[Rfam]
RNA sequence: CGGGAUUAGUCCCGUGGGAAUGUAGCUUUUGUAAUAAUUAGAAGCCAAAAGCUGAACCGUGAA
Numbered sequence: 001c002g003g004g005a006u007u008a009g010u011c012c013c014g015u016g017g018g019a020a021u022g023u024a025g026c027u028u029u030u031g032u033a034a035u036a037a038u039u040a041g042a043a044g045c046c047a048a049a050a051g052c053u054g055a056a057c058c059g060u061g062a063a
Base pairs, nucleotide, nucleotide: 001014002013003012004011005010017058018057023054024053025052026051027050028049029048030047031046
Description
The record is a 63-nucleotide RNA sequence from Methanolobus tindarius, which matches "eL15-Euryarchaeota ribosomal protein leader" in Rfam. Taxonomically the source falls in Methanolobus tindarius (Archaea, Methanomicrobia, Methanosarcinaceae, Methanolobus). The family's RNA type in Rfam is cis-regulatory leader. It is one of the family's seed sequences. The literature on the family includes a 2020 paper in BMC Microbiol by Eckert and Weinberg, "Discovery of 20 novel ribosomal leader candidates in bacteria and archaea".